[Rfam]
RNA: Clostridiales-1 RNA
RNA sequence: UGAUACCAGGGUCAAAAGGUCUAAACCCACAUGAGCUUGCUCAUAGGUGGGUGAAAGACCUUGGGACCCGCCACGAUAUGCGAAUAUUGGGGGAAUUGUGGGAGUGCUUAGCACGGAACAAUUCGCAGGUAUUA
Numbered sequence: 001u002g003a004u005a006c007c008a009g010g011g012u013c014a015a016a017a018g019g020u021c022u023a024a025a026c027c028c029a030c031a032u033g034a035g036c037u038u039g040c041u042c043a044u045a046g047g048u049g050g051g052u053g054a055a056a057g058a059c060c061u062u063g064g065g066a067c068c069c070g071c072c073a074c075g076a077u078a079u080g081c082g083a084a085u086a087u088u089g090g091g092g093g094a095a096u097u098g099u100g101g102g103a104g105u106g107c108u109u110a111g112c113a114c115g116g117a118a119c120a121a122u123u124c125g126c127a128g129g130u131a132u133u134a
Stems, first nucleotide, its partner, number of pairs: 001134007010068004017061006025052006031044005072091001074089006093124007104114004